Notes: The record is a 103-nucleotide RNA from Rhabdonatronobacter sediminivivens, which matches "TPP riboswitch aptamer (THI element)" in Rfam.
[Rfam]
RNA sequence: CAACGACCGUUGGGGUGUCCCGUCACGGGACUGAGAGGCCGCGCGCCAACCCAUCGAACCUGAUCCGGAUGAUACCGGCGUAGGGAACGGUGCGACCAUGGGG
Numbered sequence: 001c002a003a004c005g006a007c008c009g010u011u012g013g014g015g016u017g018u019c020c021c022g023u024c025a026c027g028g029g030a031c032u033g034a035g036a037g038g039c040c041g042c043g044c045g046c047c048a049a050c051c052c053a054u055c056g057a058a059c060c061u062g063a064u065c066c067g068g069a070u071g072a073u074a075c076c077g078g079c080g081u082a083g084g085g086a087a088c089g090g091u092g093c094g095a096c097c098a099u100g101g102g103g
Stems, first nucleotide, its partner, number of pairs: 006091005011053004016048001017031005038047001040045001059084004065078004